The record is an 85-nucleotide sequence from Macaca mulatta, which matches "mir-548 microRNA precursor family" in Rfam. NCBI's taxonomy places the organism under Eukaryota, Eumetazoa, Eutheria, Primates, Macaca. The family's consensus secondary structure was predicted with WAR. The match comes from Rfam's covariance-model search (96 bits).
RNA sequence: UAUUAGGUUGGCGCAAAAGUAAUUGCGGUUUUUGCCAUCAAAAAGUGAUGACAAAAACUGCAAUUACUUUUGCGCCAACCUAAUA
Numbered sequence: 001u002a003u004u005a006g007g008u009u010g011g012c013g014c015a016a017a018a019g020u021a022a023u024u025g026c027g028g029u030u031u032u033u034g035c036c037a038u039c040a041a042a043a044a045g046u047g048a049u050g051a052c053a054a055a056a057a058c059u060g061c062a063a064u065u066a067c068u069u070u071u072g073c074g075c076c077a078a079c080c081u082a083a084u085a
Base pairs, nucleotide, nucleotide: 001085002084003083004082005081006080007079008078009077010076011075012074013073014072015071016070017069018068019067020066021065022064023063024062025061026060027059028058029057030056031055032054033053034052036050037049038048039047040046